The record is a 118-nucleotide sequence from Caloranaerobacter sp. TR13, which matches "FMN riboswitch aptamer (RFN element)" in Rfam. The family's consensus secondary structure is taken from published work. The literature on the family includes a 2002 paper in Proc Natl Acad Sci U S A by Winkler et al., "An mRNA structure that controls gene expression by binding FMN". From the family's description: The RFN element is a highly conserved domain that is found frequently in the 5'-untranslated regions of prokaryotic mRNAs that encode for flavin mononucleotide (FMN) biosynthesis and transport proteins.
[Rfam]
RNA sequence: UCUAGUCUUCAGGGCAGGGUGAAAUUCCCGACCGGCGGUAUAGCCCGCGAGCUGCAUUGCAGUUGACCUGGUGAAAUUCCAGGGCCGACAGUUAAAGUCUGGAUGGGAGAAGAUUAGU
Numbered sequence: 001u002c003u004a005g006u007c008u009u010c011a012g013g014g015c016a017g018g019g020u021g022a023a024a025u026u027c028c029c030g031a032c033c034g035g036c037g038g039u040a041u042a043g044c045c046c047g048c049g050a051g052c053u054g055c056a057u058u059g060c061a062g063u064u065g066a067c068c069u070g071g072u073g074a075a076a077u078u079c080c081a082g083g084g085c086c087g088a089c090a091g092u093u094a095a096a097g098u099c100u101g102g103a104u105g106g107g108a109g110a111a112g113a114u115u116a117g118u
Base pairs, nucleotide, nucleotide: 003116004115005114006113007112008111009110010109017029018028019027031098032097033087034086035048036047037046038045043085044084051063052062053061067083068082069081070080071079089101090100091099